[Rfam]
RNA sequence: GCCGUUCAGUGAUGAGGCACGGAACAAGCACUGAGUGGUACUUGGCGCCUGUGGGGGGUAGCUCUGCACUGCAUUUCUUCUGAGAGCAGC
Numbered sequence: 001g002c003c004g005u006u007c008a009g010u011g012a013u014g015a016g017g018c019a020c021g022g023a024a025c026a027a028g029c030a031c032u033g034a035g036u037g038g039u040a041c042u043u044g045g046c047g048c049c050u051g052u053g054g055g056g057g058g059u060a061g062c063u064c065u066g067c068a069c070u071g072c073a074u075u076u077c078u079u080c081u082g083a084g085a086g087c088a089g090c
Stems, first nucleotide, its partner, number of pairs: 001090002004087002
Small nucleolar RNA U83B: a 90-nucleotide RNA from Balaeniceps rex.
The family has 21 seed sequences and 966 matches in Rfam 15.1.
The literature on the family includes a 2000 paper in Nucleic Acids Res by Jady and Kiss, "Characterisation of the U83 and U84 small nucleolar RNAs: two novel 2'-O-ribose methylation guide RNAs that lack complementarities to ribosomal RNAs".
Pairs were carried over by alignment from the consensus structure.
By type it is a C/D-box small nucleolar RNA.
Taxonomically the source falls in Balaeniceps (Eukaryota, Bilateria, Deuterostomia, Theropoda).